[Rfam]
RNA sequence: UUGGAUCACGAAGUGGUGUGAAUGGGUCCUUGCUAUAUGCUGGGCUCAGGAAAGUCCCCGGGCCCAAACUGCAGAAAUGUAGGCCCGGUAACGGGUAAAUCUUCAAGUUGGGCUUGUCUCGUGCUUCGGUGUGAGGGGCUGAGACACGUGUGUGGAGCCCAUGCAAGUUCAAUAGAAGAAAAUUGGCCAAUUUGUACAGUCAUUCACAAGGUCCGUGUGACUAACAGAACGGGGCUUAUACUUCAUGAUCCA
Numbered sequence: 001u002u003g004g005a006u007c008a009c010g011a012a013g014u015g016g017u018g019u020g021a022a023u024g025g026g027u028c029c030u031u032g033c034u035a036u037a038u039g040c041u042g043g044g045c046u047c048a049g050g051a052a053a054g055u056c057c058c059c060g061g062g063c064c065c066a067a068a069c070u071g072c073a074g075a076a077a078u079g080u081a082g083g084c085c086c087g088g089u090a091a092c093g094g095g096u097a098a099a100u101c102u103u104c105a106a107g108u109u110g111g112g113c114u115u116g117u118c119u120c121g122u123g124c125u126u127c128g129g130u131g132u133g134a135g136g137g138g139c140u141g142a143g144a145c146a147c148g149u150g151u152g153u154g155g156a157g158c159c160c161a162u163g164c165a166a167g168u169u170c171a172a173u174a175g176a177a178g179a180a181a182a183u184u185g186g187c188c189a190a191u192u193u194g195u196a197c198a199g200u201c202a203u204u205c206a207c208a209a210g211g212u213c214c215g216u217g218u219g220a221c222u223a224a225c226a227g228a229a230c231g232g233g234g235c236u237u238a239u240a241c242u243u244c245a246u247g248a249u250c251c252a
Stems, first nucleotide, its partner, number of pairs: 002252007010244002014209001016207003023048007052237003056234004070081004083096005100179002108172006125165001127163001136160004146153002211221003

The family of this 252-nucleotide RNA sequence from Trifolium pratense is "RNase MRP". Its family is annotated with rRNA processing, ribonuclease MRP activity and ribonuclease MRP complex in the Gene Ontology. The literature on the family includes a 1993 paper in FASEB J by Schmitt et al., "Secondary structure of RNase MRP RNA as predicted by phylogenetic comparison". Rfam classes the family as a ribozyme. Rfam's curators write: RNase MRP is an enzymatically active ribonucleoprotein with two distinct roles in eukaryotes. The family's consensus secondary structure is taken from published work. Lineage of the source: Eukaryota > Streptophytina > Spermatophyta > fabids > Trifolium.